The record is a 74-nucleotide RNA from Scleropages formosus, which matches "mir-23 microRNA precursor family" in Rfam.
The match comes from Rfam's covariance-model search (62 bits).
For this family Rfam cites "The developmental miRNA profiles of zebrafish as determined by small RNA cloning" (Chen et al., Genes Dev, 2005).
The organism belongs to Scleropages, within Eukaryota.
RNA sequence: GGCCAUGGGGAUUCCUGGCAGGGUGAUUUUUGGCAUUAUGGUAUGAAUCACAUUGCCAGGGAUUUCCAAUGGCU
Numbered sequence: 001g002g003c004c005a006u007g008g009g010g011a012u013u014c015c016u017g018g019c020a021g022g023g024u025g026a027u028u029u030u031u032g033g034c035a036u037u038a039u040g041g042u043a044u045g046a047a048u049c050a051c052a053u054u055g056c057c058a059g060g061g062a063u064u065u066c067c068a069a070u071g072g073c074u
Stems, first nucleotide, its partner, number of pairs: 001074001003072003009067002011063011023051007